[Rfam]
About this RNA: A member of the RNA family "Group I catalytic intron" from Handroanthus impetiginosus, 585 nucleotides long. A search with the family's covariance model found it, with a score of 64 bits. Rfam links the family to the GO term Group I intron splicing. Lineage of the source: Eukaryota > Streptophyta > Gunneridae > Lamiales > Handroanthus. The family has 12 seed sequences and 5,602 matches in Rfam 15.1. On this family, see Cech, Annu Rev Biochem 1990: "Self-splicing of group I introns".
RNA sequence: CUAGUGAUCUUACCAUGGUCAGGCUUAUAAAAGGCCGAAUGGGUAAACUAAAGAAAUGAGCCUCUUUAUUAGCUCAAGUAGAAGUGAACCUUCUGCUAAAGAUCGUCAAAUUGACGGGAAACCCCUAAAGCAAUCUUAACUAACUUAGCAUGGUAACAUAGCUAAGGGCGCAGGUAAUGACUCGCGAUUAUUUUUUAUUUUUUUAGGUCCGGCCGGACCUAAAAAUUCUAACUUUCGUUUUUUAGCGCUUGCUGACUUUUUUUAAACUUUUUUUUUACGUAAAAAAAAAGUCUGCGCUAAAAAAAAAAGUUUAAGGUAUUUAAAAAUACAAAUAAAAAAUUCAGUAAAAUCAAGAUUGAUUACGUAAGUGAAUGGGCAAUCCGCAGCCAAGCAGCAUAAUAGUUUUACAAUAAUUCUAUUAUGGUGUGCAGUUCAUCGACUAGAUGGUGAUCGGCUUUUUAUUUUCUUCUUCUUUUUUUUUUUACUUUACUCUAAAUGCUUUAAACACUAAAAAAAGAUAAAAAAAGACUGAUAGUAGACAAUAAAUCGCUUAAGAUAUAGUCAAACCUCUGUGGAAACACAGCA
Numbered sequence: 001c002u003a004g005u006g007a008u009c010u011u012a013c014c015a016u017g018g019u020c021a022g023g024c025u026u027a028u029a030a031a032a033g034g035c036c037g038a039a040u041g042g043g044u045a046a047a048c049u050a051a052a053g054a055a056a057u058g059a060g061c062c063u064c065u066u067u068a069u070u071a072g073c074u075c076a077a078g079u080a081g082a083a084g085u086g087a088a089c090c091u092u093c094u095g096c097u098a099a100a101g102a103u104c105g106u107c108a109a110a111u112u113g114a115c116g117g118g119a120a121a122c123c124c125c126u127a128a129a130g131c132a133a134u135c136u137u138a139a140c141u142a143a144c145u146u147a148g149c150a151u152g153g154u155a156a157c158a159u160a161g162c163u164a165a166g167g168g169c170g171c172a173g174g175u176a177a178u179g180a181c182u183c184g185c186g187a188u189u190a191u192u193u194u195u196u197a198u199u200u201u202u203u204u205a206g207g208u209c210c211g212g213c214c215g216g217a218c219c220u221a222a223a224a225a226u227u228c229u230a231a232c233u234u235u236c237g238u239u240u241u242u243u244a245g246c247g248c249u250u251g252c253u254g255a256c257u258u259u260u261u262u263u264a265a266a267c268u269u270u271u272u273u274u275u276u277a278c279g280u281a282a283a284a285a286a287a288a289a290g291u292c293u294g295c296g297c298u299a300a301a302a303a304a305a306a307a308a309g310u311u312u313a314a315g316g317u318a319u320u321u322a323a324a325a326a327u328a329c330a331a332a333u334a335a336a337a338a339a340u341u342c343a344g345u346a347a348a349a350u351c352a353a354g355a356u357u358g359a360u361u362a363c364g365u366a367a368g369u370g371a372a373u374g375g376g377c378a379a380u381c382c383g384c385a386g387c388c389a390a391g392c393a394g395c396a397u398a399a400u401a402g403u404u405u406u407a408c409a410a411u412a413a414u415u416c417u418a419u420u421a422u423g424g425u426g427u428g429c430a431g432u433u434c435a436u437c438g439a440c441u442a443g444a445u446g447g448u449g450a451u452c453g454g455c456u457u458u459u460u461a462u463u464u465u466c467u468u469c470u471u472c473u474u475u476u477u478u479u480u481u482u483u484a485c486u487u488u489a490c491u492c493u494a495a496a497u498g499c500u501u502u503a504a505a506c507a508c509u510a511a512a513a514a515a516a517g518a519u520a521a522a523a524a525a526a527g528a529c530u531g532a533u534a535g536u537a538g539a540c541a542a543u544a545a546a547u548c549g550c551u552u553a554a555g556a557u558a559u560a561g562u563c564a565a566a567c568c569u570c571u572g573u574g575g576a577a578a579c580a581c582a583g584c585a
Stems, first nucleotide, its partner, number of pairs: 011031001101452005107446002112385002115383004123376003386432002391427003398420005436564001438563005454550002458546005570583005